[Rfam]
RNA sequence: AGUGUACGGGUCUGUGGUUGAAAGUCGAGGCCAGUCGCAGGCAAAACGAUCCACGUAAGCAAUGCAAAGUCGUUGUGAGCAUGGUGCGGCUUAGAAGUAAGUCCUGCCGAAAAAAAUAAUGUCGAGAGAGGUAGUAGUGGGGAGCCACGGGCUUAGGAGCGAACCCUCCAGCAGGCGAGUGUGGGGGCAAAGACCAGGUCAGCCGUACGAU
Numbered sequence: 001a002g003u004g005u006a007c008g009g010g011u012c013u014g015u016g017g018u019u020g021a022a023a024g025u026c027g028a029g030g031c032c033a034g035u036c037g038c039a040g041g042c043a044a045a046a047c048g049a050u051c052c053a054c055g056u057a058a059g060c061a062a063u064g065c066a067a068a069g070u071c072g073u074u075g076u077g078a079g080c081a082u083g084g085u086g087c088g089g090c091u092u093a094g095a096a097g098u099a100a101g102u103c104c105u106g107c108c109g110a111a112a113a114a115a116a117u118a119a120u121g122u123c124g125a126g127a128g129a130g131g132u133a134g135u136a137g138u139g140g141g142g143a144g145c146c147a148c149g150g151g152c153u154u155a156g157g158a159g160c161g162a163a164c165c166c167u168c169c170a171g172c173a174g175g176c177g178a179g180u181g182u183g184g185g186g187g188c189a190a191a192g193a194c195c196a197g198g199u200c201a202g203c204c205g206u207a208c209g210a211u
Stems, first nucleotide, its partner, number of pairs: 001211001003209007012202003015196005028182001030180001031041001033091007050084002058076001061073001082189001103175005108124003128168004137160002143153003

The family of this 211-nucleotide RNA sequence is "raiA RNA". Pairs were carried over by alignment from the consensus structure, which is taken from published work. The family's RNA type in Rfam is riboswitch.